[Rfam]
The record is a 300-nucleotide sequence from Peronospora effusa, which matches "RNase MRP" in Rfam. On this family, see Rosenblad et al., Nucleic Acids Res 2006: "Inventory and analysis of the protein subunits of the ribonucleases P and MRP provides further evidence of homology between the yeast and human enzymes". It is annotated as a ribozyme. Lineage of the source: Eukaryota > Oomycota > Peronosporomycetes > Peronosporaceae > Peronospora. The match comes from Rfam's covariance-model search (112 bits). The base pairs follow the family's consensus structure, which is taken from published work.
RNA sequence: GAACACGAUUUAGAAUUGCGAAGUCAAGUGGGUCUUCUCUUUAGUGCUUUAUGUGCUAAAUUGAAGGCGACUUGGGGAAAUUCCCCGGACACCAGGGCAGAGAGUGCCAGCGUCAAAGCGCAGACUCCCUCGACGAUGAAGCUUUGCGAAGAUGGUUCGCUUUGGCGGAUUGGAGCUUUCGGCGGAUUCUUGAGGACUGAUGGUCAUACUAAAAGUUAUGCAAUUGGCUCAGUGGCAUAUGACGGAUGUCGUGCCGUCGCUACUUCGAGCUAACCCGACGGGGAUUACUCAUGUUGUGUU
Numbered sequence: 001g002a003a004c005a006c007g008a009u010u011u012a013g014a015a016u017u018g019c020g021a022a023g024u025c026a027a028g029u030g031g032g033u034c035u036u037c038u039c040u041u042u043a044g045u046g047c048u049u050u051a052u053g054u055g056c057u058a059a060a061u062u063g064a065a066g067g068c069g070a071c072u073u074g075g076g077g078a079a080a081u082u083c084c085c086c087g088g089a090c091a092c093c094a095g096g097g098c099a100g101a102g103a104g105u106g107c108c109a110g111c112g113u114c115a116a117a118g119c120g121c122a123g124a125c126u127c128c129c130u131c132g133a134c135g136a137u138g139a140a141g142c143u144u145u146g147c148g149a150a151g152a153u154g155g156u157u158c159g160c161u162u163u164g165g166c167g168g169a170u171u172g173g174a175g176c177u178u179u180c181g182g183c184g185g186a187u188u189c190u191u192g193a194g195g196a197c198u199g200a201u202g203g204u205c206a207u208a209c210u211a212a213a214a215g216u217u218a219u220g221c222a223a224u225u226g227g228c229u230c231a232g233u234g235g236c237a238u239a240u241g242a243c244g245g246a247u248g249u250c251g252u253g254c255c256g257u258c259g260c261u262a263c264u265u266c267g268a269g270c271u272a273a274c275c276c277g278a279c280g281g282g283g284a285u286u287a288c289u290c291a292u293g294u295u296g297u298g299u300u
Base pairs, nucleotide, nucleotide: 002300003299004298005297006296007295008294009293011291014225015224016223017222018221019220024075025074026073027072028071029070032068033067034066035065036064037063079286080285081284083283084282085281086280096108097107098106099105110121111120112119113118123197125195131184132183134181135180136179140177141176142175143174144168145167146166147165154161155160227270228269229268230267232265